[Rfam]
RNA sequence: GAAAGGCCAUGAGGCAAGGUCGUCCUCACGAAUUGUGUCAGGACCGGAAGGUAGCAGCACUAAGUCCGCGACGGUUUGUGCUUCAUGUUUUAUUGAA
Numbered sequence: 001g002a003a004a005g006g007c008c009a010u011g012a013g014g015c016a017a018g019g020u021c022g023u024c025c026u027c028a029c030g031a032a033u034u035g036u037g038u039c040a041g042g043a044c045c046g047g048a049a050g051g052u053a054g055c056a057g058c059a060c061u062a063a064g065u066c067c068g069c070g071a072c073g074g075u076u077u078g079u080g081c082u083u084c085a086u087g088u089u090u091u092a093u094u095g096a097a
Stems, first nucleotide, its partner, number of pairs: 004091003008087007015078001017077006025068001028065002035060004043052003
RNA: Bacterial small signal recognition particle RNA